[Rfam]
RNA: L2-Alphaproteobacteria ribosomal protein leader
Nucleotides: 062
Base pairs, nucleotide, nucleotide: 001019002018003017004016006015007014008013029040030039031038032037
Number, partner (000 for none) and nucleotide at each position: 001019g002018g003017c004016c005000a006015c007014c008013u009000c010000u011000g012000g013008g014007g015006g016004g017003g018002c019001u020000u021000u022000a023000c024000c025000a026000a027000a028000c029040g030039g031038u032037g033000a034000a035000u036000c037032c038031g039030c040029c041000c042000a043000u044000a045000u046000a047000g048000c049000a050000a051000a052000c053000g054000g055000a056000g057000a058000c059000a060000g061000a062000a